[Rfam]
RNA sequence: UGGCUCAAUUUUCUUGGGAGGUUAGUCCAGCCUACUCACCUCCCCUCAGCUGAGCCUACAGUAAAGGAGCCAGGUGUCUGUCUAUGUGGGAGAGGUGCAUAAGAAAAACCUACCCCAUUCAAGCUGGCCUCACACUU
Numbered sequence: 001u002g003g004c005u006c007a008a009u010u011u012u013c014u015u016g017g018g019a020g021g022u023u024a025g026u027c028c029a030g031c032c033u034a035c036u037c038a039c040c041u042c043c044c045c046u047c048a049g050c051u052g053a054g055c056c057u058a059c060a061g062u063a064a065a066g067g068a069g070c071c072a073g074g075u076g077u078c079u080g081u082c083u084a085u086g087u088g089g090g091a092g093a094g095g096u097g098c099a100u101a102a103g104a105a106a107a108a109c110c111u112a113c114c115c116c117a118u119u120c121a122a123g124c125u126g127g128c129c130u131c132a133c134a135c136u137u
Stems, first nucleotide, its partner, number of pairs: 002056006016044007024036002066131002069128002072125002079117002087112004